[Rfam]
RNA sequence: GGAAGAAGGAAGCAUGGUAAGGUGCACGAGAUGAAAGAUGGGUCUACAUGUCUACUCACUUUGAUGCUCUCGGGCGUUGAUCUAGCAGGCCUGGAUUUGACUCACAUUC
Numbered sequence: 001g002g003a004a005g006a007a008g009g010a011a012g013c014a015u016g017g018u019a020a021g022g023u024g025c026a027c028g029a030g031a032u033g034a035a036a037g038a039u040g041g042g043u044c045u046a047c048a049u050g051u052c053u054a055c056u057c058a059c060u061u062u063g064a065u066g067c068u069c070u071c072g073g074g075c076g077u078u079g080a081u082c083u084a085g086c087a088g089g090c091c092u093g094g095a096u097u098u099g100a101c102u103c104a105c106a107u108u109c
Base pairs, nucleotide, nucleotide: 012025013024014023015022040092041091042090043089044088050081051080052079055074056073

This 109-nucleotide RNA from Elaeis guineensis belongs to the Rfam family "Small nucleolar RNA snoR100". For this family Rfam cites "Experimental RNomics: identification of 140 candidates for small non-messenger RNAs in the plant Arabidopsis thaliana" (Marker et al., Curr Biol, 2002). Pairs were carried over by alignment from the consensus structure, which was predicted with WAR. Rfam 15.1 lists 1,851 matches to the family in 220 species. Taxonomically the source falls in Elaeis (Eukaryota, Viridiplantae, Streptophytina, Embryophyta).